[Rfam]
c-di-AMP riboswitch aptamer (ydaO/yuaA leader): a 147-nucleotide RNA from Thermoleophilum album. A reference for the family is Barrick et al. (2004), "New RNA motifs suggest an expanded scope for riboswitches in bacterial genetic control", Proc Natl Acad Sci U S A.
RNA sequence: UUGUAGGAAUUGCCGAAUCCGCCACCCCUCGACGUGGCGGUACGGGGGACCCAGGUUUCGGGGCGAAUCGGCCCGCCAUAGGCCGUAGCGCAGCUCUUUCGGCGCGAGCCCGACAGCUAACCCCGGAGGCGCCCGACGAAAGAGAGG
Numbered sequence: 001u002u003g004u005a006g007g008a009a010u011u012g013c014c015g016a017a018u019c020c021g022c023c024a025c026c027c028c029u030c031g032a033c034g035u036g037g038c039g040g041u042a043c044g045g046g047g048g049a050c051c052c053a054g055g056u057u058u059c060g061g062g063g064c065g066a067a068u069c070g071g072c073c074c075g076c077c078a079u080a081g082g083c084c085g086u087a088g089c090g091c092a093g094c095u096c097u098u099u100c101g102g103c104g105c106g107a108g109c110c111c112g113a114c115a116g117c118u119a120a121c122c123c124c125g126g127a128g129g130c131g132c133c134c135g136a137c138g139a140a141a142g143a144g145a146g147g
Stems, first nucleotide, its partner, number of pairs: 011131004019040007043125005052060001061111003069085004088105004
About the family: This family represents a conserved RNA structure found upstream of the ydaO and yuaA genes in Bacillus subtilis and related genes in other bacteria. Lineage of the source: Bacteria > Bacillati > Actinomycetota > Thermoleophilaceae > Thermoleophilum.